[Rfam]
RNA sequence: UAGAACAAUGUAGAUAAGGGAAGUCGGCAAAAUAGAUCCGUAACUUCGGGAUAAGGAUUGGCUCUGAGGGUUGGGUGUAUUGGCCUCUUGCGGAACGCUUGGGAGGUUGGGCUGGAACUACUGUUGCUUCACGGCGACGGCGGAUCUGACCCGAAUUCUUAGGUAGACUGCUUUAGGAUGGUUUCGGCCGCCCGGUGCACGCUUAACAACCGACUCAGAACUGGUACGGACAAGGGGAAUCUGACUGUCUAAUUAAAACAUAGCAUUGCGAAGGCCAGAAAGUGGUGUUGACGCAAUGUGAUUUCUGCCCAGUGCUCUGAAUGUCAAAGUGAAGAAAUUCAACCAAGCGCGGGUAAACGGCGGGAGUAACUAUGACUCUCUUAAGGUAGCCAAAUGCCUCGUCAUCUAAUUAGUGACGCGCAUGAAUGGAUUAACGAGAUUCCCACUGUCCCUAUCUACUAUCUAGCGAAACCACAGCCAAGGGAACGGGCUUGGCAAA
Number, nucleotide and partner (000 for none) at each position: 001u465002a464003g463004a462005a000006c000007a000008a000009u000010g459011u458012a457013g456014a455015u454016a453017a000018g451019g450020g449021a000022a000023g000024u000025c000026g000027g000028c000029a000030a000031a000032a000033u000034a000035g059036a058037u057038c056039c055040g000041u000042a000043a000044c049045u000046u000047c000048g000049g044050g000051a000052u000053a000054a000055g039056g038057a037058u036059u035060g222061g221062c000063u219064c218065u217066g216067a215068g214069g211070g210071u209072u208073g207074g000075g200076u199077g198078u197079a196080u195081u194082g193083g192084c177085c176086u175087c000088u000089u000090g171091c170092g000093g000094a000095a000096c000097g164098c163099u162100u161101g160102g159103g158104a157105g156106g000107u154108u153109g152110g151111g150112c000113u148114g147115g146116a145117a000118c143119u142120a000121c140122u139123g138124u137125u136126g135127c134128u133129u000130c000131a000132c000133g128134g127135c126136g125137a124138c123139g122140g121141c000142g119143g118144a000145u116146c115147u114148g113149a000150c111151c110152c109153g108154a107155a000156u105157u104158c103159u102160u101161a100162g099163g098164u097165a000166g000167a000168c000169u000170g091171c090172u000173u000174u000175a086176g085177g084178a000179u000180g000181g000182u000183u000184u000185c000186g000187g000188c000189c000190g000191c000192c083193c082194g081195g080196u079197g078198c077199a076200c075201g000202c000203u000204u000205a000206a000207c073208a072209a071210c070211c069212g000213a000214c068215u067216c066217a065218g064219a063220a000221c061222u060223g227224g000225u000226a000227c223228g000229g000230a000231c000232a000233a000234g000235g444236g443237g442238a441239a440240u439241c438242u436243g435244a000245c000246u260247g259248u258249c000250u000251a000252a000253u000254u000255a000256a000257a000258a248259c247260a246261u000262a000263g299264c298265a297266u296267u295268g294269c293270g292271a000272a288273g000274g286275c285276c284277a283278g000279a000280a000281a000282g000283u277284g276285g275286u274287g000288u272289u000290g000291a000292c270293g269294c268295a267296a266297u265298g264299u263300g000301a000302u000303u430304u429305c428306u000307g361308c360309c359310c000311a000312g358313u357314g354315c353316u352317c351318u000319g350320a000321a000322u349323g348324u347325c000326a000327a000328a000329g000330u341331g340332a339333a338334g000335a000336a000337a000338u333339u332340c331341a330342a000343c000344c000345a000346a000347g324348c323349g322350c319351g317352g316353g315354u314355a000356a000357a313358c312359g309360g308361c307362g380363g379364g378365a377366g376367u375368a000369a000370c000371u000372a000373u000374g000375a367376c366377u365378c364379u363380c362381u385382u000383a000384a000385g381386g000387u000388a000389g000390c000391c000392a000393a000394a000395u000396g000397c000398c000399u000400c000401g417402u416403c415404a414405u413406c000407u000408a000409a000410u000411u000412a000413g405414u404415g403416a402417c401418g000419c000420g000421c000422a000423u000424g000425a000426a000427u000428g305429g304430a303431u000432u000433a000434a000435c243436g242437a000438g241439a240440u239441u238442c237443c236444c235445a000446c000447u000448g000449u020450c019451c018452c000453u016454a015455u014456c013457u012458a011459c010460u000461a000462u004463c003464u002465a001466g000467c000468g000469a000470a000471a000472c000473c000474a000475c000476a000477g000478c495479c494480a493481a492482g491483g000484g000485a000486a000487c000488g000489g000490g000491c482492u481493u480494g479495g478496c000497a000498a000499a000